The record is an 84-nucleotide sequence from Lysinibacillus telephonicus, which matches "c-di-GMP-I riboswitch aptamer" in Rfam.
RNA sequence: UGAUUAUAAUGGCAAAUCAAUUGAAAAAUUGAGACGCAAAACUACAGGCCUAAGGUAUAUUGCUAUGGUGGCUGGGUUACCGUA
Numbered sequence: 001u002g003a004u005u006a007u008a009a010u011g012g013c014a015a016a017u018c019a020a021u022u023g024a025a026a027a028a029u030u031g032a033g034a035c036g037c038a039a040a041a042c043u044a045c046a047g048g049c050c051u052a053a054g055g056u057a058u059a060u061u062g063c064u065a066u067g068g069u070g071g072c073u074g075g076g077u078u079a080c081c082g083u084a
Stems, first nucleotide, its partner, number of pairs: 012037002017032006040078004045074003048069003055063003
Overview
Rfam describes the family as follows. GEMM was predicted in a large-scale screen for bacterial structured RNA regulatory elements. Pairs were carried over by alignment from the consensus structure, which is taken from published work.